[Rfam]
RNA sequence: CGGUGAUGCCUGCUAGCCGAUAUCAAAGCAGGCACUCGGUCAUGCUGUGGGUUGAAAUAAACCUUAGACGCGCCCGUCGUCGAGAGUGUGAUGUGAGGAUGGGUUAGAUGCCCU
Number, nucleotide and partner (000 for none) at each position: 001c019002g018003g017004u016005g000006a000007u034008g033009c032010c031011u030012g029013c028014u000015a000016g004017c003018c002019g001020a000021u000022a000023u000024c000025a000026a000027a000028g013029c012030a011031g010032g009033c008034a007035c097036u096037c095038g094039g092040u091041c090042a089043u088044g087045c086046u085047g000048u000049g064050g063051g062052u061053u060054g000055a000056a000057a000058u000059a000060a053061a052062c051063c050064u049065u000066a000067g081068a080069c079070g078071c000072g000073c000074c000075c000076g000077u000078c070079g069080u068081c067082g000083a000084g000085a046086g045087u044088g043089u042090g041091a040092u039093g000094u038095g037096a036097g035098g000099a000100u000101g113102g112103g111104u110105u000106a000107g000108a000109u000110g104111c103112c102113c101114u000